[Rfam]
RNA sequence: CGCCGUCGCGCGGGAGAGCGCUCGAAAAUCGAGCCGCCGAAGGCGUAACCCCCCGGAACCGCUCAGGCAAACGGACCGCCGACGAAU
Numbered sequence: 001c002g003c004c005g006u007c008g009c010g011c012g013g014g015a016g017a018g019c020g021c022u023c024g025a026a027a028a029u030c031g032a033g034c035c036g037c038c039g040a041a042g043g044c045g046u047a048a049c050c051c052c053c054c055g056g057a058a059c060c061g062c063u064c065a066g067g068c069a070a071a072c073g074g075a076c077c078g079c080c081g082a083c084g085a086a087u
Stems, first nucleotide, its partner, number of pairs: 005083004010079004020034004036068003039064002043062003049056002